Rfam assigns this 108-nucleotide RNA from Lathyrus oleraceus to the family "Small nucleolar RNA snoR100". Taxonomically the source falls in Lathyrus (Eukaryota, Mesangiospermae, Fabales, Fabeae). Pairs were carried over by alignment from the consensus structure, which was predicted with WAR. Its family is annotated with nucleolus and RNA processing in the Gene Ontology.
[Rfam]
RNA sequence: AAAUGAAGGAAUCAUGGUUGUGUGCACGCAAAUUGAUAUCGUUAGGUCCGCAUGUCUGCUCUCUCUGAUUCCUGAAUUGAUUUGAGGGCCUGGUAACGACCUACAUUU
Numbered sequence: 001a002a003a004u005g006a007a008g009g010a011a012u013c014a015u016g017g018u019u020g021u022g023u024g025c026a027c028g029c030a031a032a033u034u035g036a037u038a039u040c041g042u043u044a045g046g047u048c049c050g051c052a053u054g055u056c057u058g059c060u061c062u063c064u065c066u067g068a069u070u071c072c073u074g075a076a077u078u079g080a081u082u083u084g085a086g087g088g089c090c091u092g093g094u095a096a097c098g099a100c101c102u103a104c105a106u107u108u
Stems, first nucleotide, its partner, number of pairs: 013024003044091005054081003059074001